[Rfam]
RNA sequence: UGAGAAAAGCAGAAGUGAGAGCUUCUCGCCUUGCGACUAACGUUGUCUGGCUCUACAUGUUAAGUUUCCUAUGGGAAUAUUAUGUAGAACGGGCUUGUGUUAGCAAGUUCGUUUUUGGUUUUCUCA
Number, nucleotide and partner (000 for none) at each position: 001u000002g000003a000004g000005a000006a000007a000008a000009g000010c000011a026012g025013a024014a023015g022016u021017g000018a000019g000020a000021g016022c015023u014024u013025c012026u011027c000028g051029c050030c049031u000032u000033g046034c045035g044036a043037c042038u000039a000040a000041c000042g037043u036044u035045g034046u033047c000048u000049g030050g029051c028052u000053c000054u000055a000056c000057a000058u000059g000060u000061u000062a000063a000064g000065u000066u000067u000068c000069c000070u000071a000072u000073g000074g000075g000076a000077a000078u000079a000080u000081u000082a000083u000084g000085u000086a000087g000088a113089a112090c111091g110092g109093g108094c107095u106096u105097g104098u000099g000100u000101u000102a000103g000104c097105a096106a095107g094108u093109u092110c091111g090112u089113u088114u000115u000116u000117g000118g000119u000120u000121u000122u000123c000124u000125c000126a000